Notes: The family of this 139-nucleotide RNA sequence from Paenibacillus sp. Root444D2 is "c-di-AMP riboswitch aptamer (ydaO/yuaA leader)". Lineage of the source: Bacteria > Bacillota > Bacilli > Caryophanales > Paenibacillus. It scores 71 bits against the family's covariance model.

[Rfam]
RNA sequence: AAAUAUUUCAUGCCGAAUUCCUCAUUUCUUGGGGAAACGGGGGAACCACACCGGGUGAAUUGAUCUUGCCAGACAGGGAUCAUAGGGAACCUUCAACCGAACCCUCCAGCUAACCUCGUAGGCACCGGAAGGAGACAAG
Numbered sequence: 001a002a003a004u005a006u007u008u009c010a011u012g013c014c015g016a017a018u019u020c021c022u023c024a025u026u027u028c029u030u031g032g033g034g035a036a037a038c039g040g041g042g043g044a045a046c047c048a049c050a051c052c053g054g055g056u057g058a059a060u061u062g063a064u065c066u067u068g069c070c071a072g073a074c075a076g077g078g079a080u081c082a083u084a085g086g087g088a089a090c091c092u093u094c095a096a097c098c099g100a101a102c103c104c105u106c107c108a109g110c111u112a113a114c115c116u117c118g119u120a121g122g123c124a125c126c127g128g129a130a131g132g133a134g135a136c137a138a139g
Stems, first nucleotide, its partner, number of pairs: 011124004018036006037119006053104003061082007085098002